Shown here is a 91-nucleotide sequence from Microthlaspi erraticum, a member of the family "MIR173 microRNA precursor family".
The family's consensus secondary structure was predicted with RNAalifold.

[Rfam]
RNA sequence: UAAGCGCCUUCGCUUGCAGAGAGAAAUCACAGUGGUUAAGUUCUUUUUUAGUCUCUUCCUCUGUGAUUCUCUGUGCAAGCAAAAGAGCUUG
Numbered sequence: 001u002a003a004g005c006g007c008c009u010u011c012g013c014u015u016g017c018a019g020a021g022a023g024a025a026a027u028c029a030c031a032g033u034g035g036u037u038a039a040g041u042u043c044u045u046u047u048u049u050a051g052u053c054u055c056u057u058c059c060u061c062u063g064u065g066a067u068u069c070u071c072u073g074u075g076c077a078a079g080c081a082a083a084a085g086a087g088c089u090u091g
Base pairs, nucleotide, nucleotide: 001091002090003089004088005087007085009083010082012080013079014078015077016076017075018074020072021071022070023069024068025067027066028065029064030063031062032061034059035058039057040056

The family has 2 seed sequences and 6 matches in Rfam 15.1. NCBI's taxonomy places the organism under Eukaryota, Streptophytina, Euphyllophyta, Brassicales, Microthlaspi.